[Rfam]
RNA sequence: CAAGGUUCUCGGGGCGGGGUGAAACUCCCCACCGGCGGUAUAGCCCGCGAGCGCCUGCCGGCAACGGCAGGGUCAGCAGAGUCCGGUGAGAUUCCGGCGCCGACGGUUACAGUCCGGAUAAGAGAGAACGGCC
Numbered sequence: 001c002a003a004g005g006u007u008c009u010c011g012g013g014g015c016g017g018g019g020u021g022a023a024a025c026u027c028c029c030c031a032c033c034g035g036c037g038g039u040a041u042a043g044c045c046c047g048c049g050a051g052c053g054c055c056u057g058c059c060g061g062c063a064a065c066g067g068c069a070g071g072g073u074c075a076g077c078a079g080a081g082u083c084c085g086g087u088g089a090g091a092u093u094c095c096g097g098c099g100c101c102g103a104c105g106g107u108u109a110c111a112g113u114c115c116g117g118a119u120a121a122g123a124g125a126g127a128a129c130g131g132c133c
Stems, first nucleotide, its partner, number of pairs: 005129006017029003031113002033102002035048004043100002051077002081098001083097004104116003